[Rfam]
RNA sequence: UUUACGAUAGACCACUAGCGAGGUAUAGAGUUCCUACGUGAUUUUAUAUUGUAGGAACUUCAUACCGUGCUCUUGGAUUUGUCGAU
Numbered sequence: 001u002u003u004a005c006g007a008u009a010g011a012c013c014a015c016u017a018g019c020g021a022g023g024u025a026u027a028g029a030g031u032u033c034c035u036a037c038g039u040g041a042u043u044u045u046a047u048a049u050u051g052u053a054g055g056a057a058c059u060u061c062a063u064a065c066c067g068u069g070c071u072c073u074u075g076g077a078u079u080u081g082u083c084g085a086u
Base pairs, nucleotide, nucleotide: 012076013075014074017071018070019069020068022066023065024064025063026062028060029059030058031057032056033055034054035053036052037051
RNA: mir-276 microRNA precursor family